[Rfam]
Nucleotides: 108
Base pairs, nucleotide, nucleotide: 003107004106005105006104007103008102009101010100015095016094017093018092019091020090021089023087024086025085026084029082030081031080032079034077035076036075
Number, partner (000 for none) and nucleotide at each position: 001000g002000c003107c004106a005105c006104g007103g008102g009101g010100g011000u012000a013000c014000g015095c016094c017093g018092c019091u020090a021089c022000g023087u024086u025085g026084c027000u028000u029082u030081c031080a032079c033000u034077u035076g036075g037000u038000a039000c040000g041000c042000u043000c044000g045000u046000a047000u048000a049000g050000u051000a052000u053000a054000g055000a056000g057000c058000u059000a060000a061000a062000a063000g064000u065000a066000a067000a068000c069000a070000u071000a072000g073000a074000u075036c076035c077034a078000u079032g080031u081030g082029a083000u084026g085025u086024g087023a088000c089021g090020u091019a092018g093017u094016g095015g096000u097000a098000c099000c100010c101009u102008c103007c104006c105005g106004u107003g108000u
Annotation:
A member of the RNA family "mir-989 microRNA precursor family" from Anopheles gambiae, 108 nucleotides long. The base pairs follow the family's consensus structure, which was predicted with RNAalifold. It is one of the family's seed sequences. Its family is annotated with RISC complex, miRNA-mediated post-transcriptional gene silencing and border follicle cell migration in the Gene Ontology.